RNA sequence: AGCAGAGUAAGACCCUGCGCGUUAAGUGCCGGCUGAACGGGGAGUUGACAGCCGGACGAAAAGAGCGGCGCUGCCUUUUUGCUGUGGCCAGGUCCGACGGGCCGGCCGCGGUGGACGAGCGGCACGACUCUUGCGGUGCGCGGUCUGCAUCCCGCUGCC
Numbered sequence: 001a002g003c004a005g006a007g008u009a010a011g012a013c014c015c016u017g018c019g020c021g022u023u024a025a026g027u028g029c030c031g032g033c034u035g036a037a038c039g040g041g042g043a044g045u046u047g048a049c050a051g052c053c054g055g056a057c058g059a060a061a062a063g064a065g066c067g068g069c070g071c072u073g074c075c076u077u078u079u080u081g082c083u084g085u086g087g088c089c090a091g092g093u094c095c096g097a098c099g100g101g102c103c104g105g106c107c108g109c110g111g112u113g114g115a116c117g118a119g120c121g122g123c124a125c126g127a128c129u130c131u132u133g134c135g136g137u138g139c140g141c142g143g144u145c146u147g148c149a150u151c152c153c154g155c156u157g158c159c
Stems, first nucleotide, its partner, number of pairs: 002158004010146005016140004020135003026057002029055007040152003044148001061132004
A member of the RNA family "THF (Tetrahydrofolate) riboswitch aptamer" from Neobittarella massiliensis, 159 nucleotides long.
Taxonomically the source falls in Neobittarella (ex Bilen et al. 2018) (Bacteria, Clostridia, Eubacteriales, Oscillospiraceae).
For this family Rfam cites "A eubacterial riboswitch class that senses the coenzyme tetrahydrofolate" (Ames et al., Chem Biol, 2010).
Tetrahydrofolate (THF) riboswitch was first reported for Ames et al. as an RNA motif in 5' untranslated (5'-UTR)regions of folate transport and biosynthesis genes in Firmicutes genomes.
A search with the family's covariance model found it, with a score of 78 bits.